[Rfam]
RNA: Mason-Pfizer monkey virus packaging signal
RNA sequence: UGGCGCCCAACGUGGGGCUCGAGCACGGGGGAUCCAGUGAAGGACGCCGUUCGAGUGGCCGACAAAAAUAAAAUAAAAGAGGGAACGACGUGGGAACCUGCUGCGUCUGCACCCCUCGGGUAAGUAAACGGCGAUCAUGGGGCAAGAAAUGAGUAAGCAUGAAUUAUUUGUGGAACAGUUAGGUCAUGCAUUAAAGGCACGAGGAGUAAAGGUAAAAGUAAAACAUUUAUGUAAAUAUUUUGAUUAUAUCAAAGAUCUCUGCCCUU
Numbered sequence: 001u002g003g004c005g006c007c008c009a010a011c012g013u014g015g016g017g018c019u020c021g022a023g024c025a026c027g028g029g030g031g032a033u034c035c036a037g038u039g040a041a042g043g044a045c046g047c048c049g050u051u052c053g054a055g056u057g058g059c060c061g062a063c064a065a066a067a068a069u070a071a072a073a074u075a076a077a078a079g080a081g082g083g084a085a086c087g088a089c090g091u092g093g094g095a096a097c098c099u100g101c102u103g104c105g106u107c108u109g110c111a112c113c114c115c116u117c118g119g120g121u122a123a124g125u126a127a128a129c130g131g132c133g134a135u136c137a138u139g140g141g142g143c144a145a146g147a148a149a150u151g152a153g154u155a156a157g158c159a160u161g162a163a164u165u166a167u168u169u170g171u172g173g174a175a176c177a178g179u180u181a182g183g184u185c186a187u188g189c190a191u192u193a194a195a196g197g198c199a200c201g202a203g204g205a206g207u208a209a210a211g212g213u214a215a216a217a218g219u220a221a222a223a224c225a226u227u228u229a230u231g232u233a234a235a236u237a238u239u240u241u242g243a244u245u246a247u248a249u250c251a252a253a254g255a256u257c258u259c260u261g262c263c264c265u266u
Base pairs, nucleotide, nucleotide: 006031007030008029012026013025014024039047079117080116081115082113083112089105090104091103092102093101124143125142126138150193151192152191153189154188155187200242201241202240203239204238206236207235210228211227212226213225251266252265254263256261